This 45-nucleotide RNA sequence from Cynara cardunculus belongs to the Rfam family "Plastid-ycf3 group II-D1 intron". Pairs were carried over by alignment from the consensus structure, which was predicted with LocARNA. About the family: Plastid rpl16 is a non-coding RNA (ncRNA) recognised in plastids. It was recognised in and intronic region of a ribosome rpl16 gene.
RNA sequence: AUUUUCCGUCGUGUAUUCCCGAUUCAUGCAGCCUUAGAUGCUUCA
Dot-bracket structure: .......((((........))))......(((.......)))...